[Rfam]
The family of this 96-nucleotide RNA from Streptococcus ictaluri is "Bacterial small signal recognition particle RNA". NCBI's taxonomy places the organism under Bacteria, Bacillati, Bacillota, Streptococcaceae, Streptococcus ictaluri. The family's consensus secondary structure is taken from published work. On this family, see Rosenblad et al., Nucleic Acids Res 2003: "SRPDB: Signal Recognition Particle Database". It is annotated as a non-coding RNA gene. It scores 63 bits against the family's covariance model. The signal recognition particle (SRP) is a universally conserved ribonucleoprotein involved in the co-translational targeting of proteins to membranes.
RNA sequence: AAUUGAUAGUGGAGCAACACUUGUGCGUGAAGUGGGUCAGGGGAGGAAUCCAGCAGCCCUAAGCGAUGUCGAGUGUGUGCUCUUUUUUUAUUUUCA
Numbered sequence: 001a002a003u004u005g006a007u008a009g010u011g012g013a014g015c016a017a018c019a020c021u022u023g024u025g026c027g028u029g030a031a032g033u034g035g036g037u038c039a040g041g042g043g044a045g046g047a048a049u050c051c052a053g054c055a056g057c058c059c060u061a062a063g064c065g066a067u068g069u070c071g072a073g074u075g076u077g078u079g080c081u082c083u084u085u086u087u088u089u090a091u092u093u094u095c096a
Stems, first nucleotide, its partner, number of pairs: 005092004009085001011083004015077001017076006026065003034059004042051003